The record is a 70-nucleotide RNA sequence from Strigops habroptila, which matches "Small nucleolar RNA SNORD123" in Rfam.
The family has 12 seed sequences and 518 matches in Rfam 15.1.
Pairs were carried over by alignment from the consensus structure, which was predicted with WAR.
The organism belongs to Strigops, within Eukaryota.
It is annotated as a C/D-box small nucleolar RNA.
It scores 91 bits against the family's covariance model.
The literature on the family includes a 2006 paper in Nucleic Acids Res by Yang et al., "snoSeeker: an advanced computational package for screening of guide and orphan snoRNA genes in the human genome".
RNA sequence: GGUGAAAAUGAUGAAUUCUUGGGUACUGAUUCAUGUGAUACGAAAAAAGCCAUCCAUUUCCUGAUUCACC
Numbered sequence: 001g002g003u004g005a006a007a008a009u010g011a012u013g014a015a016u017u018c019u020u021g022g023g024u025a026c027u028g029a030u031u032c033a034u035g036u037g038a039u040a041c042g043a044a045a046a047a048a049g050c051c052a053u054c055c056a057u058u059u060c061c062u063g064a065u066u067c068a069c070c
Base pairs, nucleotide, nucleotide: 001070002069003068004067005066006065